The record is a 131-nucleotide RNA from Fusobacterium polymorphum, which matches "Ribosomal protein L10 leader" in Rfam. Pairs were carried over by alignment from the consensus structure, which was predicted with CMfinder. Gene Ontology term of the family: regulation of gene expression. Rfam classes the family as a cis-regulatory leader.
[Rfam]
RNA sequence: AUUAAAUAUAAAUCCAAACCAAAGACCGUAGGGGGAGGUAAUCCUUAAAUAACCUACCGAGGUUGGAAGUUAGAUAUACUAACCUCAAAACUUAACCCCUGUCUUUGUGAUAGGGGUAUAUUUUUAGAAAA
Numbered sequence: 001a002u003u004a005a006a007u008a009u010a011a012a013u014c015c016a017a018a019c020c021a022a023a024g025a026c027c028g029u030a031g032g033g034g035g036a037g038g039u040a041a042u043c044c045u046u047a048a049a050u051a052a053c054c055u056a057c058c059g060a061g062g063u064u065g066g067a068a069g070u071u072a073g074a075u076a077u078a079c080u081a082a083c084c085u086c087a088a089a090a091c092u093u094a095a096c097c098c099c100u101g102u103c104u105u106u107g108u109g110a111u112a113g114g115g116g117u118a119u120a121u122u123u124u125u126a127g128a129a130a131a
Base pairs, nucleotide, nucleotide: 028057029056030055031054032053034044035043036042096116097115098114099113100112101111102110103109